[Rfam]
RNA sequence: GAGUUUCUCCGAGCCGCACCGCGGAGCUACAAUCAGAGUUCUCGUAACUAAAAAAUAGCUCUGAGGAAGGUCCCUGGAUCUCUGACCGAAAGAGUCGUAGCAUUGUUGCUAUUAGCCACUGCCAUCUUCUCAACAAUGGAGUAGGAUGUCGCGAGACUGAUCCUUGAGUUGGGCAGUGUGUAUUGGUCAAAGUAAAGUAAUGUGCAUAAUUGGGUCGGUCCCAAACCGAUAACUCAACAGGGCCUUUUACGAAGAAACA
Numbered sequence: 001g002a003g004u005u006u007c008u009c010c011g012a013g014c015c016g017c018a019c020c021g022c023g024g025a026g027c028u029a030c031a032a033u034c035a036g037a038g039u040u041c042u043c044g045u046a047a048c049u050a051a052a053a054a055a056u057a058g059c060u061c062u063g064a065g066g067a068a069g070g071u072c073c074c075u076g077g078a079u080c081u082c083u084g085a086c087c088g089a090a091a092g093a094g095u096c097g098u099a100g101c102a103u104u105g106u107u108g109c110u111a112u113u114a115g116c117c118a119c120u121g122c123c124a125u126c127u128u129c130u131c132a133a134c135a136a137u138g139g140a141g142u143a144g145g146a147u148g149u150c151g152c153g154a155g156a157c158u159g160a161u162c163c164u165u166g167a168g169u170u171g172g173g174c175a176g177u178g179u180g181u182a183u184u185g186g187u188c189a190a191a192g193u194a195a196a197g198u199a200a201u202g203u204g205c206a207u208a209a210u211u212g213g214g215u216c217g218g219u220c221c222c223a224a225a226c227c228g229a230u231a232a233c234u235c236a237a238c239a240g241g242g243c244c245u246u247u248u249a250c251g252a253a254g255a256a257a258c259a
Base pairs, nucleotide, nucleotide: 003258004257005256006255007254008253010251011250016205017204018203019202022063023062024061025060026059027058037049038048039047040046068245069244070243072242073241074240075239084096085095086094097112098111099110100109101108102107115179116178119176120175121174122173123172129168130167131166138164139163141161148157149156150155209230210229211228212227213226
Dot-bracket structure: ..((((((.((....[[[[..((((((.........((((.....))))........))))))....(((.((((........(((.......)))((((((....))))))..((..(((((.....(((......((.(......(((....)))...).)).)))...))))).))......................]]]]...(((((............)))))........)))))))....)).)))))).